[Rfam]
RNA: mir-9223 microRNA precursor family
Organism: Cnephaeus nilssonii
Nucleotides: 076
Stems, first nucleotide, its partner, number of pairs: 002075001005072008014063004019058005025052004030047001
Number, partner (000 for none) and nucleotide at each position: 001000g002075g003000c004000g005072g006071u007070u008069c009068u010067c011066a012065g013000a014063u015062g016061a017060u018000g019058c020057a021056c022055c023054c024000u025052g026051g027050a028049a029000c030047u031000a032000a033000a034000g035000a036000g037000g038000a039000g040000g041000a042000a043000g044000c045000c046000u047030g048000a049028u050027u051026c052025c053000g054023g055022g056021g057020u058019g059000c060017g061016u062015c063014a064000c065012c066011u067010g068009a069008g070007a071006a072005c073000c074000a075002c076000c